[Rfam]
Nucleotides: 054
Base pairs, nucleotide, nucleotide: 001020002019004017005016006015007014024054025053026052028051030049031048032047033046034045
Number, partner (000 for none) and nucleotide at each position: 001020c002019c003000a004017g005016c006015c007014c008000a009000u010000g011000a012000c013000c014007g015006g016005g017004c018000c019002g020001g021000u022000c023000g024054u025053c026052u027000a028051c029000c030049c031048g032047g033046g034045u035000a036000c037000c038000u039000g040000a041000c042000a043000c044000g045034g046033c047032c048031c049030g050000a051028g052026a053025g054024g
L17-Actino-Proteobacteria ribosomal protein leader: a 54-nucleotide RNA from Nocardioides ganghwensis. A search with the family's covariance model found it, with a score of 36 bits. Lineage of the source: Bacteria > Actinomycetota > Propionibacteriales > Nocardioidaceae > Nocardioides.